The family of this 83-nucleotide sequence from Vigna angularis is "Small nucleolar RNA Z159/U59".
RNA sequence: GUCUCUGAGGAUGAUGAAAACUAUAACUUUCGUUCUCCUGAAUUUUUCAUGUGGAAGAAUAUGGAGACCUGAACUGAAGAGGC
Numbered sequence: 001g002u003c004u005c006u007g008a009g010g011a012u013g014a015u016g017a018a019a020a021c022u023a024u025a026a027c028u029u030u031c032g033u034u035c036u037c038c039u040g041a042a043u044u045u046u047u048c049a050u051g052u053g054g055a056a057g058a059a060u061a062u063g064g065a066g067a068c069c070u071g072a073a074c075u076g077a078a079g080a081g082g083c
Stems, first nucleotide, its partner, number of pairs: 003081004
Pairs were carried over by alignment from the consensus structure, which was predicted with PFOLD.